RNA sequence: GGACCGCCCUUUUGGGCUAAGGCCAUACGGACAGCCGGGUCCACUGCCGA
Numbered sequence: 001g002g003a004c005c006g007c008c009c010u011u012u013u014g015g016g017c018u019a020a021g022g023c024c025a026u027a028c029g030g031a032c033a034g035c036c037g038g039g040u041c042c043a044c045u046g047c048c049g050a
Base pairs, nucleotide, nucleotide: 001042002041003040004039005038006017007016008015009014
Rfam assigns this 50-nucleotide RNA sequence to the family "Streptococcus sRNA SpF59 (ldcC RNA)". Rfam classes the family as a small RNA. The literature on the family includes a 2012 paper in PLoS Pathog by Mann et al., "Control of virulence by small RNAs in Streptococcus pneumoniae".